[Rfam]
RNA sequence: AACGUCAUUGAAGAGGUGAAUGGGUCAUCACGGCUUGUCGAAGUUCCGACCCAGGAAAGUCCCCGGGCCACUUGUGCGCAGAGAUGCGUUCUUGGUAACGAGAGAAUCAUGCGGUGGAGAGAUUUAAAGCUGAGACACGUGUGUGGAGCUUUCUCUACCGGAUGAUAUCAUGGCCGUUCGUAUUACGACAGUUAUUCACCUGGUCCUUUGUCCGGACUAACUGAACGGGGCUUACGUUUCGAUGACAA
Numbered sequence: 001a002a003c004g005u006c007a008u009u010g011a012a013g014a015g016g017u018g019a020a021u022g023g024g025u026c027a028u029c030a031c032g033g034c035u036u037g038u039c040g041a042a043g044u045u046c047c048g049a050c051c052c053a054g055g056a057a058a059g060u061c062c063c064c065g066g067g068c069c070a071c072u073u074g075u076g077c078g079c080a081g082a083g084a085u086g087c088g089u090u091c092u093u094g095g096u097a098a099c100g101a102g103a104g105a106a107u108c109a110u111g112c113g114g115u116g117g118a119g120a121g122a123u124u125u126a127a128a129g130c131u132g133a134g135a136c137a138c139g140u141g142u143g144u145g146g147a148g149c150u151u152u153c154u155c156u157a158c159c160g161g162a163u164g165a166u167a168u169c170a171u172g173g174c175c176g177u178u179c180g181u182a183u184u185a186c187g188a189c190a191g192u193u194a195u196u197c198a199c200c201u202g203g204u205c206c207u208u209u210g211u212c213c214g215g216a217c218u219a220a221c222u223g224a225a226c227g228g229g230g231c232u233u234a235c236g237u238u239u240c241g242a243u244g245a246c247a248a
Base pairs, nucleotide, nucleotide: 004246005245006244007243008242009241010240011239014201015200016199017198018197019196021053022052023051024050025049026048057233058232059231061230062229063228064227077088078087079086080085089104090103091102092101093100094099106166107165108164109163110162112160113159114158118156119155120154121153127151128150129149130148137144138143203217204216205215206214